This 156-nucleotide RNA from Streptomyces sp. ISL-10 belongs to the Rfam family "c-di-AMP riboswitch aptamer (ydaO/yuaA leader)". The organism belongs to Streptomyces, within Bacteria. Pairs were carried over by alignment from the consensus structure.
RNA sequence: UCCGACCACACGCACUCGUUCGGCAGGGGCGGGGGACCCAGGUAAGUCGCCGAUCCGGAAAUCCGGAACGGCUCGGGGUGAAGUCGCACCGACCAUGCGACCGGGCAUCUCCAGCCCGAACCCGACAGCUCACCCCGCAGGCGACGGAGAGGAAUG
Numbered sequence: 001u002c003c004g005a006c007c008a009c010a011c012g013c014a015c016u017c018g019u020u021c022g023g024c025a026g027g028g029g030c031g032g033g034g035g036a037c038c039c040a041g042g043u044a045a046g047u048c049g050c051c052g053a054u055c056c057g058g059a060a061a062u063c064c065g066g067a068a069c070g071g072c073u074c075g076g077g078g079u080g081a082a083g084u085c086g087c088a089c090c091g092a093c094c095a096u097g098c099g100a101c102c103g104g105g106c107a108u109c110u111c112c113a114g115c116c117c118g119a120a121c122c123c124g125a126c127a128g129c130u131c132a133c134c135c136c137g138c139a140g141g142c143g144a145c146g147g148a149g150a151g152g153a154a155u156g
Stems, first nucleotide, its partner, number of pairs: 001028003029138006039075001076123003084100004103117004